[Rfam]
RNA sequence: AUAAUGAUACUUCUGCGCAGUCGAGAUUAAGUUCCAGAGCGCAGCCCGGGCGUUGCCGGGGCGGUGAAAGUCCAAUGA
Numbered sequence: 001a002u003a004a005u006g007a008u009a010c011u012u013c014u015g016c017g018c019a020g021u022c023g024a025g026a027u028u029a030a031g032u033u034c035c036a037g038a039g040c041g042c043a044g045c046c047c048g049g050g051c052g053u054u055g056c057c058g059g060g061g062c063g064g065u066g067a068a069a070g071u072c073c074a075a076u077g078a
Base pairs, nucleotide, nucleotide: 012075013044014043015042016041017040018039045061046060047059049057050056051055063073064072